[Rfam]
RNA sequence: CCCAGAUUAGUGACGGCCUGACCCUAAACCUGUUUGCCAGGGAGGUCAGGCCUGAUGAAACUGGC
Numbered sequence: 001c002c003c004a005g006a007u008u009a010g011u012g013a014c015g016g017c018c019u020g021a022c023c024c025u026a027a028a029c030c031u032g033u034u035u036g037c038c039a040g041g042g043a044g045g046u047c048a049g050g051c052c053u054g055a056u057g058a059a060a061c062u063g064g065c
Stems, first nucleotide, its partner, number of pairs: 002064004015052009030040003
Selenocysteine insertion sequence 1: a 65-nucleotide RNA from Clupea harengus. Rfam's curators write: The incorporation of selenocysteine into a protein sequence is directed by an in-frame UGA codon (usually a stop codon) within the coding region of the mRNA. Selenoprotein mRNAs contain a conserved secondary structure in the 3' UTR that is required for the distinction of UGA stop from UGA selenocysteine. Gene Ontology term of the family: selenocysteine incorporation. The match comes from Rfam's covariance-model search (39 bits). NCBI's taxonomy places the organism under Eukaryota, Bilateria, Neopterygii, Clupeidae, Clupea. Rfam classes the family as a cis-regulatory element.